[Rfam]
RNA: pan motif
Organism: Anaerovibrio lipolyticus
Nucleotides: 091
Base pairs, nucleotide, nucleotide: 001028002027003026004024005023006022007021008020010019011018061087062086063085064083065082066081067080068079070078071077072076
Number, partner (000 for none) and nucleotide at each position: 001028g002027g003026g004024a005023u006022g007021g008020c009000a010019u011018c012000c013000g014000u015000u016000u017000g018011g019010a020008g021007u022006c023005a024004u025000a026003c027002u028001c029000c030000u031000u032000a033000a034000u035000u036000u037000g038000c039000u040000u041000c042000a043000a044000u045000u046000u047000u048000u049000a050000u051000a052000a053000a054000u055000a056000c057000u058000u059000u060000u061087u062086c063085g064083c065082u066081u067080a068079g069000a070078u071077c072076c073000u074000u075000g076072g077071g078070a079068c080067u081066g082065a083064g084000a085063c086062g087061g088000a089000u090000g091000g